[Rfam]
This 172-nucleotide RNA from Cohnella thailandensis belongs to the Rfam family "c-di-AMP riboswitch aptamer (ydaO/yuaA leader)".
RNA sequence: CAUACAACCCAGCCGAAUUUCCGCAAGAAAACGGGGGAACCAAUCCGCACGCGCCGCUUCCGAGCGCGCGGCACCCGGGGUGAAUUCCGAACGCGACAGGCGCUUCGGAUAGGGCUCACUGUUUCAGGCCCGAACCCGUCAGCUAACCUCGUAGGCUGUUACUGGAACAGGA
Number, nucleotide and partner (000 for none) at each position: 001c000002a000003u000004a000005c000006a000007a000008c000009c000010c000011a157012g156013c155014c154015g000016a000017a000018u030019u029020u028021c000022c000023g000024c000025a000026a000027g000028a020029a019030a018031a152032c151033g150034g149035g148036g147037g000038a000039a000040c000041c077042a000043a000044u000045c000046c000047g000048c000049a000050c000051g000052c000053g000054c000055c000056g000057c000058u000059u000060c000061c000062g000063a000064g000065c000066g000067c000068g000069c000070g000071g000072c000073a000074c000075c000076c000077g041078g137079g136080g135081u000082g000083a000084a000085u000086u109087c108088c107089g106090a105091a104092c000093g000094c000095g000096a000097c000098a000099g000100g000101c000102g000103c000104u091105u090106c089107g088108g087109a086110u000111a000112g131113g130114g129115c128116u000117c000118a000119c000120u000121g000122u000123u000124u000125c000126a000127g000128g115129c114130c113131c112132g000133a000134a000135c080136c079137c078138g000139u000140c000141a000142g000143c000144u000145a000146a000147c036148c035149u034150c033151g032152u031153a000154g014155g013156c012157u011158g000159u000160u000161a000162c000163u000164g000165g000166a000167a000168c000169a000170g000171g000172a000